[Rfam]
RNA sequence: UAAGUUAUUUAGAACAAAUACUCAUCUAAUUAUAACAUCCUCACACCUCAAACAACAGAAUCACUUGUUAACAUAUACCCACUGCAUCAGUAUCUAUCUCUUAUCAGUUUCUUCGGAUUGAUUAAUUUUCGAACAAUUAAGUUUUGAGACAGAGUUGGUCA
Numbered sequence: 001u002a003a004g005u006u007a008u009u010u011a012g013a014a015c016a017a018a019u020a021c022u023c024a025u026c027u028a029a030u031u032a033u034a035a036c037a038u039c040c041u042c043a044c045a046c047c048u049c050a051a052a053c054a055a056c057a058g059a060a061u062c063a064c065u066u067g068u069u070a071a072c073a074u075a076u077a078c079c080c081a082c083u084g085c086a087u088c089a090g091u092a093u094c095u096a097u098c099u100c101u102u103a104u105c106a107g108u109u110u111c112u113u114c115g116g117a118u119u120g121a122u123u124a125a126u127u128u129u130c131g132a133a134c135a136a137u138u139a140a141g142u143u144u145u146g147a148g149a150c151a152g153a154g155u156u157g158g159u160c161a
Base pairs, nucleotide, nucleotide: 004159005158006157007156008154009153012150015148018145023141025139027136030133031132